[Rfam]
A member of the RNA family "23S methyl RNA motif" from Streptococcus sp. sy004, 94 nucleotides long. The source organism's lineage runs through Bacteria, Bacillati, Bacillota, Lactobacillales and Streptococcus. The family's consensus secondary structure is taken from published work.

RNA sequence: CACUCAUUGGUUUAACUCAAUCCUGUUAUGAUUUAAGUCAAUGAGCUAUCAACCAUGUUGCCUGCUGAUUUAAUCCGGGUGGCAUGGCUAUUUU
Numbered sequence: 001c002a003c004u005c006a007u008u009g010g011u012u013u014a015a016c017u018c019a020a021u022c023c024u025g026u027u028a029u030g031a032u033u034u035a036a037g038u039c040a041a042u043g044a045g046c047u048a049u050c051a052a053c054c055a056u057g058u059u060g061c062c063u064g065c066u067g068a069u070u071u072a073a074u075c076c077g078g079g080u081g082g083c084a085u086g087g088c089u090a091u092u093u094u
Stems, first nucleotide, its partner, number of pairs: 003045013017031003051089001053087012067075003